[Rfam]
RNA: Small nucleolar RNA SNORD116
RNA sequence: GGUCAGAUGAUGAUUUUCACUAAUUUCCAGUUCUUUGAAAUGUGUGAAAAUAAUGUGAACAUUUACUUCUCAUCAUUUUGAAACUAACUGAUGUCC
Numbered sequence: 001g002g003u004c005a006g007a008u009g010a011u012g013a014u015u016u017u018c019a020c021u022a023a024u025u026u027c028c029a030g031u032u033c034u035u036u037g038a039a040a041u042g043u044g045u046g047a048a049a050a051u052a053a054u055g056u057g058a059a060c061a062u063u064u065a066c067u068u069c070u071c072a073u074c075a076u077u078u079u080g081a082a083a084c085u086a087a088c089u090g091a092u093g094u095c096c
Stems, first nucleotide, its partner, number of pairs: 001096002004093002028057002032053001034049003